[Rfam]
RNA: sucA-II RNA
Organism: Pseudomonas syringae
RNA sequence: CUACGGCGCAGGCUUCAACCGGCGCCGUAGUUUUAACCUGAGCAGUAGCUCGCAAAGCUGCGGCUCUUAUUUUGAAGAAAUGAGACCAGCAGGGGCAUCCGGGCUGGUACCCGGACUAUCUGCGUGAUCCCUGGUGACUUGAUACAGUCGCUGCACACGACUAUUUCAGGAUUGCUCUGGUGUCUUCGCCGGUGGUGUCCCCUUACCGAGGGUGACCA
Numbered sequence: 001c002u003a004c005g006g007c008g009c010a011g012g013c014u015u016c017a018a019c020c021g022g023c024g025c026c027g028u029a030g031u032u033u034u035a036a037c038c039u040g041a042g043c044a045g046u047a048g049c050u051c052g053c054a055a056a057g058c059u060g061c062g063g064c065u066c067u068u069a070u071u072u073u074g075a076a077g078a079a080a081u082g083a084g085a086c087c088a089g090c091a092g093g094g095g096c097a098u099c100c101g102g103g104c105u106g107g108u109a110c111c112c113g114g115a116c117u118a119u120c121u122g123c124g125u126g127a128u129c130c131c132u133g134g135u136g137a138c139u140u141g142a143u144a145c146a147g148u149c150g151c152u153g154c155a156c157a158c159g160a161c162u163a164u165u166u167c168a169g170g171a172u173u174g175c176u177c178u179g180g181u182g183u184c185u186u187c188g189c190c191g192g193u194g195g196u197g198u199c200c201c202c203u204u205a206c207c208g209a210g211g212g213u214g215a216c217c218a
Base pairs, nucleotide, nucleotide: 001030002029003028004027005026006025007024008023009022011020012019040066041065042064043063045061046060048058049057050056091203092202093201094200095199096197097196098115099114100113101112102111103110116195117194118193119192120191122189123188124187126184127183129180130179133176134175135174136173137172138170139169140168141167142166146162147161148160149159150158